Shown here is a 182-nucleotide RNA sequence from Cripavirus ropadi, a member of the family "Cripavirus internal ribosome entry site (IRES)". Rfam's curators put it in the seed alignment. This family represents a Cripavirus internal ribosome entry site (IRES) which is required for the production of capsid proteins through IRES-mediated translation. The base pairs follow the family's consensus structure, which is taken from published work. For this family Rfam cites "A tertiary structure model of the internal ribosome entry site (IRES) for methionine-independent initiation of translation" (Kanamori and Nakashima, RNA, 2001). The organism belongs to Cripavirus ropadi, within Viruses.
[Rfam]
RNA sequence: AGUGUUGUGUGAUCUUGCGCGAUAAAUGCUGACGUGAAAACGUUGCGUAUUGCUACAACACUUGGUUAGCUAUUUAGCUUUACUAAUCAAGACGCCGUCGUGCAGCCCACAAAAGUCUAGAUACGUCACAGGAGAGCAUACGCUAGGUCGCGUUGACUAUCCUUAUAUAUGACCUGCAAAUA
Numbered sequence: 001a002g003u004g005u006u007g008u009g010u011g012a013u014c015u016u017g018c019g020c021g022a023u024a025a026a027u028g029c030u031g032a033c034g035u036g037a038a039a040a041c042g043u044u045g046c047g048u049a050u051u052g053c054u055a056c057a058a059c060a061c062u063u064g065g066u067u068a069g070c071u072a073u074u075u076a077g078c079u080u081u082a083c084u085a086a087u088c089a090a091g092a093c094g095c096c097g098u099c100g101u102g103c104a105g106c107c108c109a110c111a112a113a114a115g116u117c118u119a120g121a122u123a124c125g126u127c128a129c130a131g132g133a134g135a136g137c138a139u140a141c142g143c144u145a146g147g148u149c150g151c152g153u154u155g156a157c158u159a160u161c162c163u164u165a166u167a168u169a170u171g172a173c174c175u176g177c178a179a180a181u182a
Base pairs, nucleotide, nucleotide: 001062002061003060004059005058006057007056008055009054016049017048018047019046020045021044022043023042031126063097064096065095066094068079069078070077071076086122087121088120090118091117092116093115100110101109102108132161133160135158136157140153141152142151143150144176145175146174147173148172149171